Small nucleolar RNA Z157/R69/R10: a 99-nucleotide sequence from Acer yangbiense. Clan: SNORD52 clan. By type it is a C/D-box small nucleolar RNA. The literature on the family includes a 2003 paper in Nucleic Acids Res by Chen et al., "The high diversity of snoRNAs in plants: identification and comparative study of 120 snoRNA genes from Oryza sativa".
[Rfam]
RNA sequence: UUGUGUGCUGUGAUGAUACAAUUGUUUGUGGACUAGAGUUUCUGAUCUGGGUUUCAUCCCGGAAGUUGAAGACUAACCCUUGGCUGUCUGAGCACUAUU
Numbered sequence: 001u002u003g004u005g006u007g008c009u010g011u012g013a014u015g016a017u018a019c020a021a022u023u024g025u026u027u028g029u030g031g032a033c034u035a036g037a038g039u040u041u042c043u044g045a046u047c048u049g050g051g052u053u054u055c056a057u058c059c060c061g062g063a064a065g066u067u068g069a070a071g072a073c074u075a076a077c078c079c080u081u082g083g084c085u086g087u088c089u090g091a092g093c094a095c096u097a098u099u
Stems, first nucleotide, its partner, number of pairs: 005095004039071004046064001047062005

The base pairs follow the family's consensus structure, which was predicted with PFOLD. The match comes from Rfam's covariance-model search (85 bits).